[Rfam]
RNA: Selenocysteine insertion sequence 1
Organism: Danio rerio
RNA sequence: UUUACUUAAUGAAGAUGCUUCCUAAAACCUUUUCUGAGGGGAGUUUCUGAUGGACUGUAAA
Numbered sequence: 001u002u003u004a005c006u007u008a009a010u011g012a013a014g015a016u017g018c019u020u021c022c023u024a025a026a027a028c029c030u031u032u033u034c035u036g037a038g039g040g041g042a043g044u045u046u047c048u049g050a051u052g053g054a055c056u057g058u059a060a061a
Stems, first nucleotide, its partner, number of pairs: 001061005014047002017044007028036001